This 93-nucleotide RNA sequence from Thermophilibacter immobilis belongs to the Rfam family "Selenocysteine transfer RNA".
It scores 73 bits against the family's covariance model.
The source organism's lineage runs through Bacteria, Actinomycetota, Coriobacteriia, Atopobiaceae and Thermophilibacter.
A reference for the family is Mizutani and Goto (2000), "Eukaryotic selenocysteine tRNA has the 9/4 secondary structure", FEBS Lett.
[Rfam]
RNA sequence: GAGAGUAGAAGGGUAACUGGUGUGCCUUCUGGUCUUCAAAACCAGUGCGGGCAGGACAGCCUGCUCGGGUGGGUUCGAUUCCCACCUACUCUC
Numbered sequence: 001g002a003g004a005g006u007a008g009a010a011g012g013g014u015a016a017c018u019g020g021u022g023u024g025c026c027u028u029c030u031g032g033u034c035u036u037c038a039a040a041a042c043c044a045g046u047g048c049g050g051g052c053a054g055g056a057c058a059g060c061c062u063g064c065u066c067g068g069g070u071g072g073g074u075u076c077g078a079u080u081c082c083c084a085c086c087u088a089c090u091c092u093c
Stems, first nucleotide, its partner, number of pairs: 001093008012027002016023002029045005048067005070084004